[Rfam]
RNA sequence: GUAUCGCCCAACUGUAAGUCGCUUUGGAUAAAAGCGUCUGCUAAAUGACUAAAU
Numbered sequence: 001g002u003a004u005c006g007c008c009c010a011a012c013u014g015u016a017a018g019u020c021g022c023u024u025u026g027g028a029u030a031a032a033a034g035c036g037u038c039u040g041c042u043a044a045a046u047g048a049c050u051a052a053a054u
Stems, first nucleotide, its partner, number of pairs: 013043001014041003020036006
The record is a 54-nucleotide sequence from Sinocyclocheilus anshuiensis, which matches "UnaL2 LINE 3' element" in Rfam. Rfam links the family to the GO term transposition, RNA-mediated. NCBI's taxonomy places the organism under Eukaryota, Vertebrata, Euteleostomi, Cyprininae, Sinocyclocheilus. The family's consensus secondary structure is taken from published work. Rfam's curators write: The eel long interspersed element (LINE) UnaL2 and its partner short interspersed element (SINE) share a conserved 3' tail containing a stem-loop that is critical for their retrotransposition.